[Rfam]
RNA sequence: UAGAGGAGGAAGCAUCAUGAACGAAGUGAAUGAUUUAGGAUGCUUCCGACGACCUGCCGCCGAACGAAUGUGAGGGGGCGAUACAUAUA
Dot-bracket structure: .......((((((..(((..(.....)..))).........))))))........(((.((..((....))..)).)))..........
A member of the RNA family "GA-cis RNA", 89 nucleotides long.
It is annotated as a small RNA.